[Rfam]
RNA sequence: CAUACGGUACAACAAUUAUGUUCUAAUCUGGUCAGGUCAGGAAUGAAGCAGCCAUACGAGCCUCUAAUUGUGUGUACCAUUUUUAA
Number, nucleotide and partner (000 for none) at each position: 001c000002a000003u000004a080005c000006g078007g077008u076009a075010c072011a000012a071013c070014a069015a068016u067017u066018a063019u000020g061021u060022u059023c058024u000025a000026a000027u000028c000029u054030g053031g052032u051033c000034a000035g000036g000037u046038c045039a044040g000041g000042a000043a000044u039045g038046a037047a000048g000049c000050a000051g032052c031053c030054a029055u000056a000057c000058g023059a022060g021061c020062c000063u018064c000065u000066a017067a016068u015069u014070g013071u012072g010073u000074g000075u009076a008077c007078c006079a000080u004081u000082u000083u000084u000085a000086a000
A member of the RNA family "Bacterial small signal recognition particle RNA" from Erysipelotrichaceae bacterium OH741_COT-311, 86 nucleotides long. NCBI's taxonomy places the organism under Bacteria, Bacillati, Bacillota, Erysipelotrichia, Erysipelotrichaceae. A search with the family's covariance model found it, with a score of 60 bits. The signal recognition particle (SRP) is a universally conserved ribonucleoprotein involved in the co-translational targeting of proteins to membranes.